The family of this 172-nucleotide RNA from Fusobacterium sp. FSA-380-WT-3A is "Lysine riboswitch aptamer".
NCBI's taxonomy places the organism under Bacteria, Fusobacteriati, Fusobacteriota, Fusobacteriales, Fusobacterium.
It scores 107 bits against the family's covariance model.
The family's consensus secondary structure is taken from published work.
[Rfam]
RNA sequence: CUAGAGGAUAGAGGUUGCAAUUUUCAAGAGUAAUCUAAAUGUAAAAAGUUGGUGAACUGUUAUUUAGACAAAAGGGGAAAUUGCCGAAAGAAUUAUACUACACCAUAUAAUUCUUGGGCUAUUACAAAAUAUGUAAUAGACUGUCACAAAUUUGUGGAGAGCUAUCAAAGUA
Numbered sequence: 001c002u003a004g005a006g007g008a009u010a011g012a013g014g015u016u017g018c019a020a021u022u023u024u025c026a027a028g029a030g031u032a033a034u035c036u037a038a039a040u041g042u043a044a045a046a047a048g049u050u051g052g053u054g055a056a057c058u059g060u061u062a063u064u065u066a067g068a069c070a071a072a073a074g075g076g077g078a079a080a081u082u083g084c085c086g087a088a089a090g091a092a093u094u095a096u097a098c099u100a101c102a103c104c105a106u107a108u109a110a111u112u113c114u115u116g117g118g119c120u121a122u123u124a125c126a127a128a129a130u131a132u133g134u135a136a137u138a139g140a141c142u143g144u145c146a147c148a149a150a151u152u153u154g155u156g157g158a159g160a161g162c163u164a165u166c167a168a169a170g171u172a
Stems, first nucleotide, its partner, number of pairs: 007166005017084009034068007088115010116142002119139008144157005